[Rfam]
RNA sequence: CAACGUUCACCCCGCCCAUGCGGGGCGCAGCUCGACUCAGGCCAUGGAACGGGGACCUGAG
Numbered sequence: 001c002a003a004c005g006u007u008c009a010c011c012c013c014g015c016c017c018a019u020g021c022g023g024g025g026c027g028c029a030g031c032u033c034g035a036c037u038c039a040g041g042c043c044a045u046g047g048a049a050c051g052g053g054g055a056c057c058u059g060a061g
Stems, first nucleotide, its partner, number of pairs: 004051005010025005036061006042054002

Rfam assigns this 61-nucleotide RNA sequence from Synechococcus sp. RS9916 to the family "Glutamine-II riboswitch aptamer". The organism belongs to Synechococcus, within Bacteria. For this family Rfam cites "Structure and ligand binding of the glutamine-II riboswitch" (Huang et al., Nucleic Acids Res, 2019). The family's consensus secondary structure is taken from published work. It is one of the family's seed sequences.